Shown here is a 130-nucleotide RNA sequence from Erinaceus europaeus, a member of the family "Small nucleolar RNA SNORA68".
From the family's description: U68 is a member of the H/ACA class of small nucleolar RNAs (snoRNAs) which act as guides in the the modification of uridines to pseudouridines.
A search with the family's covariance model found it, with a score of 94 bits.
The organism belongs to Erinaceus, within Eukaryota.
Its family is annotated with RNA processing and nucleolus in the Gene Ontology.
The literature on the family includes a 1997 paper in Genes Dev by Ganot et al., "The family of box ACA small nucleolar RNAs is defined by an evolutionarily conserved secondary structure and ubiquitous sequence elements essential for RNA accumulation".
RNA sequence: ACCGCACCUAAACCCAAGGGCCACUAUUUAUUAAAAUAGUGGUUCAGACACAGGUGCUAACAGCAAAGGGGACCUCGUCACCUUUGGAGGACCGUCUAUGCCCUUCAAAGUGAAUUCAGUUUCUACACAC
Numbered sequence: 001a002c003c004g005c006a007c008c009u010a011a012a013c014c015c016a017a018g019g020g021c022c023a024c025u026a027u028u029u030a031u032u033a034a035a036a037u038a039g040u041g042g043u044u045c046a047g048a049c050a051c052a053g054g055u056g057c058u059a060a061c062a063g064c065a066a067a068g069g070g071g072a073c074c075u076c077g078u079c080a081c082c083u084u085u086g087g088a089g090g091a092c093c094g095u096c097u098a099u100g101c102c103c104u105u106c107a108a109a110g111u112g113a114a115u116u117c118a119g120u121u122u123c124u125a126c127a128c129a130c
Base pairs, nucleotide, nucleotide: 004057005056006055007054008053009052019044020043021042022041023040024039025038026037027036028035070123071122072121074119075118082110083109084108085107086106087105088104089103090102092100